[Rfam]
The family of this 98-nucleotide RNA from Periweissella cryptocerci is "Purine riboswitch aptamer".

RNA sequence: AAUAGGUAACAAUAUAUCGCUUAUAUAUCGUCGGAAUAUGGCCGACAGUUUCUACCUAGCACCUUAAAUGCUGGACUAUAAGCAGAAAAUAGUCAGAU
Numbered sequence: 001a002a003u004a005g006g007u008a009a010c011a012a013u014a015u016a017u018c019g020c021u022u023a024u025a026u027a028u029c030g031u032c033g034g035a036a037u038a039u040g041g042c043c044g045a046c047a048g049u050u051u052c053u054a055c056c057u058a059g060c061a062c063c064u065u066a067a068a069u070g071c072u073g074g075a076c077u078a079u080a081a082g083c084a085g086a087a088a089a090u091a092g093u094c095a096g097a098u
Stems, first nucleotide, its partner, number of pairs: 019083007030046005056074006

The literature on the family includes a 2003 paper in Cell by Mandal et al., "Riboswitches Control Fundamental Biochemical Pathways in Bacillus subtilis and Other Bacteria".
NCBI's taxonomy places the organism under Bacteria, Bacillota, Bacilli, Lactobacillales, Periweissella.
The family's consensus secondary structure is taken from published work.